RNA: Small nucleolar RNA snoR100
RNA sequence: AAGAGAAAGAAGUAUGGUAAUGUGCACAUAAUUUGAAUUGCGUCUCUAGGUCUGCUCUCUCUGAUGUCAUUUGACUUUGACUUUGGGGCAUAGUUCCGCAGCAAAAUA
Numbered sequence: 001a002a003g004a005g006a007a008a009g010a011a012g013u014a015u016g017g018u019a020a021u022g023u024g025c026a027c028a029u030a031a032u033u034u035g036a037a038u039u040g041c042g043u044c045u046c047u048a049g050g051u052c053u054g055c056u057c058u059c060u061c062u063g064a065u066g067u068c069a070u071u072u073g074a075c076u077u078u079g080a081c082u083u084u085g086g087g088g089c090a091u092a093g094u095u096c097c098g099c100a101g102c103a104a105a106a107u108a
Stems, first nucleotide, its partner, number of pairs: 012025004040091001042089003050081003054075001056073001